Background
This 85-nucleotide sequence from Paralysiella testudinis belongs to the Rfam family "sRNA-Xcc1". A reference for the family is Wengelnik et al. (1996), "HrpG, a key hrp regulatory protein of Xanthomonas campestris pv. vesicatoria is homologous to two-component response regulators", Mol Plant Microbe Interact. The base pairs follow the family's consensus structure, which was predicted with RNAalifold. It scores 56 bits against the family's covariance model. It is annotated as a small RNA.
RNA sequence: GGCGGGUCGAGAGAACCUAAUACAACACCCCUUGGGGAAUAAGUUCCGCCGUCUUAUCGCGGUAGUUGAAGCCCGCCACCCUACU
Number, nucleotide and partner (000 for none) at each position: 001g077002g076003c075004g074005g073006g072007u071008c000009g000010a000011g000012a000013g046014a045015a044016c043017c000018u041019a040020a000021u000022a000023c000024a000025a000026c000027a000028c036029c035030c034031c000032u000033u000034g030035g029036g028037g000038a000039a000040u019041a018042a000043g016044u015045u014046c013047c000048g063049c062050c061051g060052u059053c000054u000055u000056a000057u000058c000059g052060c051061g050062g049063u048064a000065g000066u000067u000068g000069a000070a000071g007072c006073c005074c004075g003076c002077c001078a000079c000080c000081c000082u000083a000084c000085u000